[Rfam]
Small nucleolar RNA U3: a 226-nucleotide RNA from Octopus sinensis. The match comes from Rfam's covariance-model search (56 bits). The family's RNA type in Rfam is C/D-box small nucleolar RNA. Rfam describes the family as follows. Small nucleolar RNAs (snoRNAs) are involved in the processing and modification of rRNA in the nucleolus. There are two main classes of snoRNAs: the box C/D class, and the box H/ACA class. U3 snoRNA is a member of the box C/D class. Indeed, the box C/D element is a subset of the six short sequence elements found in all U3 snoRNAs, namely boxes A, A', B, C, C', and D. The U3 snoRNA secondary structure is characterised by a small 5' domain (with boxes A and A'), and a larger 3' domain (with boxes B, C, C', and D), the two domains being linked by a single-stranded hinge. Its Rfam clan is "U3 clan". The literature on the family includes a 1997 paper in Nucleic Acids Res by Zwieb, "The uRNA database".

RNA sequence: CAGCAGGGGUCUUGCGUAUGACCCUUUGCUGGGGGCACAGAAGAUUUUGUUUAUAAUUCAGUGCAAAAAAUUGGUGAUGAUGUGAGAUCAUUUUGGGUCCUGAGCUUGAAGCAGGAUUUCCUUAAUUGUUCGUUAUUCUCAGUCUUCAACGAAUGUGAGAAAUCCAUUGAAGAUGGUUCUUGAGAGGUUUAAUAACUUCGUAAGAGGGACUCAAUACUUUCUGAGU
Number, nucleotide and partner (000 for none) at each position: 001c031002a030003g029004c028005a027006g025007g024008g023009g022010u021011c020012u000013u000014g000015c000016g000017u000018a000019u000020g011021a010022c009023c008024c007025u006026u000027u005028g004029c003030u002031g001032g000033g000034g000035g000036c000037a000038c000039a000040g059041a058042a057043g000044a000045u000046u000047u056048u055049g000050u000051u000052u000053a000054u000055a048056a047057u042058u041059c040060a000061g000062u000063g000064c000065a000066a000067a000068a000069a000070a000071u000072u000073g000074g226075u225076g000077a000078u000079g000080a000081u000082g000083u000084g000085a000086g000087a000088u000089c000090a000091u216092u000093u214094u213095g212096g211097g210098u209099c208100c207101u206102g000103a000104g177105c176106u175107u000108g000109a000110a000111g000112c000113a000114g165115g164116a163117u162118u000119u000120c159121c000122u157123u000124a000125a000126u000127u000128g000129u000130u000131c000132g150133u149134u148135a000136u000137u000138c000139u000140c000141a000142g000143u000144c000145u000146u000147c000148a134149a133150c132151g000152a000153a000154u000155g000156u000157g122158a000159g120160a000161a000162a117163u116164c115165c114166a000167u000168u000169g000170a000171a000172g000173a000174u000175g106176g105177u104178u000179c000180u203181u202182g000183a000184g199185a198186g197187g196188u195189u194190u000191a000192a000193u000194a189195a188196c187197u186198u185199c184200g000201u000202a181203a180204g000205a000206g101207g100208g099209a098210c097211u096212c095213a094214a093215u000216a091217c000218u000219u000220u000221c000222u000223g000224a000225g075226u074